RNA sequence: GUGAAAGCUAUGAAGGGUAGUAGUAAAUAAAAUUUUAUUUUCAGAGAGUAGGCGGUUGGUGAAAGCCUAUAGUAAAGUUUAUUGAAUCCGACCUAAAGCUGCAUAGGGGUAAAAACCUAUGCCGGAAUUAUCCGUUAUAAUAAUGAGGCUGGUAAAACAGUAAAUUAAGGUGGUACCACGUGGAUAUUAGAUUCUCGUCCUUGAC
Number, nucleotide and partner (000 for none) at each position: 001g000002u000003g000004a000005a000006a000007g099008c098009u000010a000011u000012g000013a000014a000015g094016g093017g092018u091019a000020g000021u000022a000023g000024u000025a000026a083027a082028u081029a080030a079031a078032a000033u000034u000035u000036u000037a073038u072039u071040u000041u000042c000043a000044g000045a000046g000047a000048g070049u069050a068051g067052g066053c065054g000055g000056u000057u000058g000059g000060u000061g000062a000063a000064a000065g053066c052067c051068u050069a049070u048071a039072g038073u037074a000075a000076a000077g000078u031079u030080u029081a028082u027083u026084g000085a000086a000087u000088c000089c000090g000091a018092c017093c016094u015095a000096a000097a000098g008099c007100u000101g000102c121103a120104u119105a118106g117107g116108g000109g000110u000111a000112a000113a000114a000115a000116c107117c106118u105119a104120u103121g102122c000123c134124g133125g132126a000127a000128u000129u000130a000131u000132c125133c124134g123135u000136u000137a000138u000139a000140a000141u000142a000143a000144u000145g000146a000147g000148g161149c160150u159151g158152g000153u000154a000155a000156a000157a000158c151159a150160g149161u148162a000163a000164a000165u000166u000167a202168a201169g200170g199171u000172g000173g000174u000175a000176c000177c000178a198179c197180g196181u000182g194183g193184a192185u191186a000187u000188u000189a000190g000191a185192u184193u183194c182195u000196c180197g179198u178199c170200c169201u168202u167203g000204a000205c000
The family of this 205-nucleotide RNA sequence from Clostridium homopropionicum is "T-box leader". It is annotated as a cis-regulatory leader. The match comes from Rfam's covariance-model search (131 bits). For this family Rfam cites "Interaction between the acceptor end of tRNA and the T box stimulates antitermination in the Bacillus subtilis tyrS gene: a new role for the discriminator base" (Grundy et al., J Bacteriol, 1994). Rfam links the family to the GO term tRNA binding.